[Rfam]
RNA sequence: AAUUAAAUAGGGCAAAAUUAGGGAAACCUAGUGACGCAAAGCUAUAGGGGCUAAGAUGAAAAUUAUGCCAGCCAGCUGCCAAA
Numbered sequence: 001a002a003u004u005a006a007a008u009a010g011g012g013c014a015a016a017a018u019u020a021g022g023g024a025a026a027c028c029u030a031g032u033g034a035c036g037c038a039a040a041g042c043u044a045u046a047g048g049g050g051c052u053a054a055g056a057u058g059a060a061a062a063u064u065a066u067g068c069c070a071g072c073c074a075g076c077u078g079c080c081a082a083a
Base pairs, nucleotide, nucleotide: 012037013036017032018031019030020029021028022027040077041076042075043074047073048072049069050068051067056063057062
This 83-nucleotide sequence from Clostridium cadaveris belongs to the Rfam family "c-di-GMP-I riboswitch aptamer".
Rfam describes the family as follows. GEMM was predicted in a large-scale screen for bacterial structured RNA regulatory elements.